RNA sequence: CCACGGAGUAGAAGCGUUCACCGUUUCGCCGUGAAGACGCCCGAUGACGGUGCGGCUUCUCCGCGCUUCGGCCGGAAAUUGCUCUGGAG
Numbered sequence: 001c002c003a004c005g006g007a008g009u010a011g012a013a014g015c016g017u018u019c020a021c022c023g024u025u026u027c028g029c030c031g032u033g034a035a036g037a038c039g040c041c042c043g044a045u046g047a048c049g050g051u052g053c054g055g056c057u058u059c060u061c062c063g064c065g066c067u068u069c070g071g072c073c074g075g076a077a078a079u080u081g082c083u084c085u086g087g088a089g
Stems, first nucleotide, its partner, number of pairs: 005085006015074001018076002021071002027065003

A member of the RNA family "Xanthine riboswitch aptamer (NMT1 RNA)" from Variovorax paradoxus, 89 nucleotides long.
Gene Ontology term of the family: purine nucleobase binding.
The source organism's lineage runs through Bacteria, Pseudomonadati, Betaproteobacteria, Burkholderiales and Variovorax paradoxus.
It is one of the family's seed sequences.